[Rfam]
Shown here is a 109-nucleotide sequence from Tepidibacillus fermentans, a member of the family "SAM riboswitch aptamer (S box leader)". On this family, see Lu et al., J Mol Biol 2010: "SAM recognition and conformational switching mechanism in the Bacillus subtilis yitJ S box/SAM-I riboswitch". It scores 101 bits against the family's covariance model. Lineage of the source: Bacteria > Bacillati > Bacillota > Bacillaceae > Tepidibacillus.
RNA sequence: UCCUUAUCUAGAGAGGUGGAGGGACUGGCCCUAUGAAGCCCGGCAACCUACCAUAAUAUUAUGGGAAGGUGCCAAUUCCUGCAGGACUUUUUGUUCUGAAAGAUAAGGA
Numbered sequence: 001u002c003c004u005u006a007u008c009u010a011g012a013g014a015g016g017u018g019g020a021g022g023g024a025c026u027g028g029c030c031c032u033a034u035g036a037a038g039c040c041c042g043g044c045a046a047c048c049u050a051c052c053a054u055a056a057u058a059u060u061a062u063g064g065g066a067a068g069g070u071g072c073c074a075a076u077u078c079c080u081g082c083a084g085g086a087c088u089u090u091u092u093g094u095u096c097u098g099a100a101a102g103a104u105a106a107g108g109a
Stems, first nucleotide, its partner, number of pairs: 001109008013041001015040003021031003025081001027079002042073004047069002049065001051063001077101001082098006

Rfam's curators write: The SAM riboswitch is found upstream of a number of genes which code for proteins involved in methionine or cysteine biosynthesis in Gram-positive bacteria.